Overview: The family of this 123-nucleotide RNA from Brassica carinata is "MIR9563 microRNA precursor family". It scores 98 bits against the family's covariance model. The family has 2 seed sequences and 5,832 matches in Rfam 15.1.
RNA sequence: GAAAUAUAAGAAACCGUCACUUAACUUUUAACUAAAAAAACUAAGAACCGAUUCUUAAACCUUUUUUAAGAACCAGUUUUUAGAUUUUUUUGUUAAAAAUUAAGAGACGGUUUCUUAUAUUAC
Numbered sequence: 001g002a003a004a005u006a007u008a009a010g011a012a013a014c015c016g017u018c019a020c021u022u023a024a025c026u027u028u029u030a031a032c033u034a035a036a037a038a039a040a041c042u043a044a045g046a047a048c049c050g051a052u053u054c055u056u057a058a059a060c061c062u063u064u065u066u067u068a069a070g071a072a073c074c075a076g077u078u079u080u081u082a083g084a085u086u087u088u089u090u091u092g093u094u095a096a097a098a099a100u101u102a103a104g105a106g107a108c109g110g111u112u113u114c115u116u117a118u119a120u121u122a123c
Stems, first nucleotide, its partner, number of pairs: 001123001003121016020104005026098007034090006041083007